[Rfam]
RNA sequence: UUGAUUUAAAUCAUUGUGGGUCUACACUUUGGAAAUAGAACAUAUACAAAGUGGUGAGACAUACAUUGAUUUCAUUCAA
Numbered sequence: 001u002u003g004a005u006u007u008a009a010a011u012c013a014u015u016g017u018g019g020g021u022c023u024a025c026a027c028u029u030u031g032g033a034a035a036u037a038g039a040a041c042a043u044a045u046a047c048a049a050a051g052u053g054g055u056g057a058g059a060c061a062u063a064c065a066u067u068g069a070u071u072u073c074a075u076u077c078a079a
Base pairs, nucleotide, nucleotide: 001079002078003077004076006074008072009071010070011069012068013067015065016064017063018062023056024055025053026052027051028050029049030048031047